[Rfam]
Nucleotides: 167
Stems, first nucleotide, its partner, number of pairs: 020047007029038001056086005065075004087105006110157004115151002124141007
Number, partner (000 for none) and nucleotide at each position: 001000a002000u003000g004000u005000a006000a007000c008000a009000c010000a011000a012000a013000g014000c015000g016000c017000c018000u019000g020047a021046a022045c023044u024043g025042c026041c027000u028000c029038g030000g031000a032000c033000g034000a035000a036000a037000g038029u039000a040000u041026g042025g043024c044023a045022g046021u047020u048000g049000a050000c051000g052000a053000g054000g055000a056086g057085g058084a059083g060082g061000u062000u063000u064000a065075u066074c067073g068072a069000g070000u071000a072068u073067c074066g075065g076000c077000g078000g079000a080000u081000g082060c083059c084058u085057c086056c087105c088104g089103a090102u091101u092100g093000a094000c095000c096000a097000u098000c099000a100092c101091a102090a103089u104088c105087g106000a107000c108000a109000u110157u111156u112155c113154u114000u115151u116150c117000c118000c119000a120000a121000a122000a123000a124141c125140a126139u127138u128137a129136a130135g131000g132000u133000g134000a135130c136129u137128u138127a139126a140125u141124g142000u143000a144000c145000a146000a147000a148000a149000g150116g151115a152000u153000u154113a155112g156111a157110a158000a159000a160000g161000a162000u163000g164000g165000a166000a167000c
This 167-nucleotide RNA sequence from Lottiidibacillus patelloidae belongs to the Rfam family "glmS glucosamine-6-phosphate activated ribozyme aptamer". The source organism's lineage runs through Bacteria, Bacillati, Bacilli, Caryophanales and Lottiidibacillus. A reference for the family is Winkler et al. (2004), "Control of gene expression by a natural metabolite-responsive ribozyme", Nature.